[Rfam]
RNA sequence: CCUGUGAAGACAUGCUUCCUUAUAUCACCAUAUGAAUACUGCUGUUAUGGAAUGUAAGGAAGUGUGUGGUUACAAG
Numbered sequence: 001c002c003u004g005u006g007a008a009g010a011c012a013u014g015c016u017u018c019c020u021u022a023u024a025u026c027a028c029c030a031u032a033u034g035a036a037u038a039c040u041g042c043u044g045u046u047a048u049g050g051a052a053u054g055u056a057a058g059g060a061a062g063u064g065u066g067u068g069g070u071u072a073c074a075a076g
Stems, first nucleotide, its partner, number of pairs: 007070001010067016028050005
A member of the RNA family "mir-1 microRNA precursor family" from Salmo salar, 76 nucleotides long. From the family's description: This family represents the microRNA (miRNA) mir-1 family. miRNAs are transcribed as ~70nt precursors (modelled here) and subsequently processed by the Dicer enzyme to give a ~22nt product. In this case the mature sequence comes from the 3' arm of the precursor. Rfam 15.1 lists 4,474 matches to the family in 965 species.